[Rfam]
RNA sequence: ACACGAGGAAGGAGGUGGUUCGAAGUUGUAUGACUGUUGGACACGUGAGGUGACCAUCCGCUAGCGCGGACCGAGGUAUUCACCUCCGCGGAGUGCGCGGCGGAUCGCCCACGGCGAACCGUGACGCCGCACCGGUCCGCGCCGGCGAAUCCCAGGUGGUCACCCGGCCCCCGUACCCCGAUCCUUGUCCGAUCGGCCAGGCCCGCUCGCGGGCGGUACGGGGGCCGUCUGCG
Numbered sequence: 001a002c003a004c005g006a007g008g009a010a011g012g013a014g015g016u017g018g019u020u021c022g023a024a025g026u027u028g029u030a031u032g033a034c035u036g037u038u039g040g041a042c043a044c045g046u047g048a049g050g051u052g053a054c055c056a057u058c059c060g061c062u063a064g065c066g067c068g069g070a071c072c073g074a075g076g077u078a079u080u081c082a083c084c085u086c087c088g089c090g091g092a093g094u095g096c097g098c099g100g101c102g103g104a105u106c107g108c109c110c111a112c113g114g115c116g117a118a119c120c121g122u123g124a125c126g127c128c129g130c131a132c133c134g135g136u137c138c139g140c141g142c143c144g145g146c147g148a149a150u151c152c153c154a155g156g157u158g159g160u161c162a163c164c165c166g167g168c169c170c171c172c173g174u175a176c177c178c179c180g181a182u183c184c185u186u187g188u189c190c191g192a193u194c195g196g197c198c199a200g201g202c203c204c205g206c207u208c209g210c211g212g213g214c215g216g217u218a219c220g221g222g223g224g225c226c227g228u229c230u231g232c233g
Stems, first nucleotide, its partner, number of pairs: 014058006059147004064142006071135003165227013178196006
A member of the RNA family "Actinobacteria sRNA Ms_IGR-5" from Gordonia mangrovi, 233 nucleotides long. By type it is a small RNA. Pairs were carried over by alignment from the consensus structure. The organism belongs to Gordonia, within Bacteria. For this family Rfam cites "Identification of small RNAs in Mycobacterium smegmatis using heterologous Hfq" (Li et al., RNA, 2013). The match comes from Rfam's covariance-model search (104 bits).